[Rfam]
RNA sequence: AUAUGUGGAUGAUGAUAAUCCAAGUAAAAUACAGUUAUCCCUGUCUUAUUCCUUCAAAAGGGUGCUGAGAAUACUUUGAUCUGACACAUUG
Number, nucleotide and partner (000 for none) at each position: 001a000002u000003a089004u088005g087006u086007g085008g000009a000010u000011g000012a000013u000014g000015a000016u000017a000018a000019u000020c000021c000022a000023a000024g000025u000026a000027a000028a000029a000030u000031a000032c000033a000034g000035u000036u000037a000038u000039c000040c000041c000042u000043g000044u000045c000046u000047u000048a000049u000050u000051c000052c000053u000054u000055c000056a000057a000058a000059a000060g000061g000062g000063u000064g000065c000066u000067g000068a000069g000070a000071a000072u000073a000074c000075u000076u000077u000078g000079a000080u000081c000082u000083g000084a000085c007086a006087c005088a004089u003090u000091g000
Shown here is a 91-nucleotide sequence from Digitaria exilis, a member of the family "Small nucleolar RNA R38".
The family has 19 seed sequences and 2,295 matches in Rfam 15.1.
A reference for the family is Bachellerie et al. (1995), "Antisense snoRNAs: a family of nucleolar RNAs with long complementarities to rRNA", Trends Biochem Sci.
Rfam classes the family as a C/D-box small nucleolar RNA.
snoR38 is a C/D box small nucleolar RNA conserved across yeast, human, Arabidopsis and rice. It is encoded in the intron of elongation factor-1 gamma in both pombe and cerevisiae. snoR38 guides the methylation of 2'-O-ribose sites in 28S rRNA.
Taxonomically the source falls in Digitaria (Eukaryota, Mesangiospermae, Panicoideae, Paniceae).
Gene Ontology terms of the family: nucleolus and RNA processing.